Rfam assigns this 81-nucleotide sequence from Cylindrospermum stagnale to the family "Photosynthesis regulatory RNA1". A search with the family's covariance model found it, with a score of 60 bits. The base pairs follow the family's consensus structure, which was predicted with CMfinder. Formerly known as Syr1 discovered in Synechocystis sp PCC 6803, is a regulatory factor controlling photosynthetic functions. For this family Rfam cites "The small regulatory RNA SyR1/PsrR1 controls photosynthetic functions in cyanobacteria" (Georg et al., Plant Cell, 2014). The organism belongs to Cylindrospermum stagnale, within Bacteria.
RNA sequence: AAGAAAUAGAUUUCCAUCUCGCUAUAUCUCAUUGAGAUUUAAUCUUCUCCCAACUACCUCGGCUAUCAAGCUGAGGUUUUU
Dot-bracket structure: .......................................................((((((((......))))))))....
Numbered sequence: 001a002a003g004a005a006a007u008a009g010a011u012u013u014c015c016a017u018c019u020c021g022c023u024a025u026a027u028c029u030c031a032u033u034g035a036g037a038u039u040u041a042a043u044c045u046u047c048u049c050c051c052a053a054c055u056a057c058c059u060c061g062g063c064u065a066u067c068a069a070g071c072u073g074a075g076g077u078u079u080u081u
Stems, first nucleotide, its partner, number of pairs: 056077008